Shown here is a 54-nucleotide sequence from Salmo salar, a member of the family "UnaL2 LINE 3' element". Taxonomically the source falls in Salmo (Eukaryota, Bilateria, Actinopteri, Teleostei). A search with the family's covariance model found it, with a score of 62 bits. From the family's description: The eel long interspersed element (LINE) UnaL2 and its partner short interspersed element (SINE) share a conserved 3' tail containing a stem-loop that is critical for their retrotransposition. Presumably, the first step of retrotransposition is the recognition of their 3' tails by UnaL2-encoded reverse transcriptase. The solution structure of a 17-nucleotide RNA derived from the 3' tail of UnaL2 was determined by NMR. By type it is a cis-regulatory element.
RNA sequence: CCCUUACAUUACUGUAAGACGCUUUGGAUAAAAGUGUCUGCUAAACGGCAUAUA
Numbered sequence: 001c002c003c004u005u006a007c008a009u010u011a012c013u014g015u016a017a018g019a020c021g022c023u024u025u026g027g028a029u030a031a032a033a034g035u036g037u038c039u040g041c042u043a044a045a046c047g048g049c050a051u052a053u054a
Base pairs, nucleotide, nucleotide: 013043014041015040016039020036021035022034023033024032025031

The base pairs follow the family's consensus structure, which is taken from published work.